[Rfam]
RNA sequence: CUCAGCGCGAGGGAGCGCGGCCCGGGCCCGGGUGGUCUGUAUGUGUGUGUGUGUCCGGCUGAUGCGUGGCCAGCGCGUAAGGGCCGAGUGUGUGAGUGGACGUGCGAGUGUGAGAGUGCGCGUGUGGGCGUGCAAGGCGAGUGCGUGCGCCCGCCCCUACGCCCCUCCCCGCCUACACCUUGAUCUUAUUUGAUCGGGUUGUAACCCCAGCCCCGCCGGGCCGACCCGAGAUGAAAAGCUCCCCUCCUGCGAAGCCCUCUCCGCGGGCGCUGUGCUGCGAGGCCUCUUGGGCGGCGGCAACGCCGCGGCCCCGGAGUCGGUCUUAGGGGCCCGGCGCUCAGAAGUGAUGAAUUGAUCAGAUAGACGAGGCCGGGCUCGUCCCGGGCCAUUGAUUAUCGAGGCGAUUCUGAUCUGA
Numbered sequence: 001c002u003c004a005g006c007g008c009g010a011g012g013g014a015g016c017g018c019g020g021c022c023c024g025g026g027c028c029c030g031g032g033u034g035g036u037c038u039g040u041a042u043g044u045g046u047g048u049g050u051g052u053g054u055c056c057g058g059c060u061g062a063u064g065c066g067u068g069g070c071c072a073g074c075g076c077g078u079a080a081g082g083g084c085c086g087a088g089u090g091u092g093u094g095a096g097u098g099g100a101c102g103u104g105c106g107a108g109u110g111u112g113a114g115a116g117u118g119c120g121c122g123u124g125u126g127g128g129c130g131u132g133c134a135a136g137g138c139g140a141g142u143g144c145g146u147g148c149g150c151c152c153g154c155c156c157c158u159a160c161g162c163c164c165c166u167c168c169c170c171g172c173c174u175a176c177a178c179c180u181u182g183a184u185c186u187u188a189u190u191u192g193a194u195c196g197g198g199u200u201g202u203a204a205c206c207c208c209a210g211c212c213c214c215g216c217c218g219g220g221c222c223g224a225c226c227c228g229a230g231a232u233g234a235a236a237a238g239c240u241c242c243c244c245u246c247c248u249g250c251g252a253a254g255c256c257c258u259c260u261c262c263g264c265g266g267g268c269g270c271u272g273u274g275c276u277g278c279g280a281g282g283c284c285u286c287u288u289g290g291g292c293g294g295c296g297g298c299a300a301c302g303c304c305g306c307g308g309c310c311c312c313g314g315a316g317u318c319g320g321u322c323u324u325a326g327g328g329g330c331c332c333g334g335c336g337c338u339c340a341g342a343a344g345u346g347a348u349g350a351a352u353u354g355a356u357c358a359g360a361u362a363g364a365c366g367a368g369g370c371c372g373g374g375c376u377c378g379u380c381c382c383g384g385g386c387c388a389u390u391g392a393u394u395a396u397c398g399a400g401g402c403g404a405u406u407c408u409g410a411u412c413u414g415a
Stems, first nucleotide, its partner, number of pairs: 057163002060161002063079006096111001098109001101106001114150001116148001119145005125139002189237003194229004199224003206220003210216002260315003265312003269309003274306002277303003282298003285294002316335005321329003339414004349407006368387004373382002
The family of this 415-nucleotide sequence from Galemys pyrenaicus is "Small Cajal body-specific RNA 2".
The family's RNA type in Rfam is small Cajal body RNA.
Rfam 15.1 lists 612 matches to the family in 498 species.
The base pairs follow the family's consensus structure, which is taken from published work.
A search with the family's covariance model found it, with a score of 349 bits.